RNA sequence: CGGCGGGCGAUGCCCGCCGCUAAGAUAUAACGCCCUUUCAGGGCU
Numbered sequence: 001c002g003g004c005g006g007g008c009g010a011u012g013c014c015c016g017c018c019g020c021u022a023a024g025a026u027a028u029a030a031c032g033c034c035c036u037u038u039c040a041g042g043g044c045u
Stems, first nucleotide, its partner, number of pairs: 001019008032044005

A member of the RNA family "Acido-Lenti-1 RNA" from Dyadobacter koreensis, 45 nucleotides long. The organism belongs to Dyadobacter, within Bacteria. The base pairs follow the family's consensus structure, which is taken from published work. It is annotated as a small RNA. The match comes from Rfam's covariance-model search (38 bits).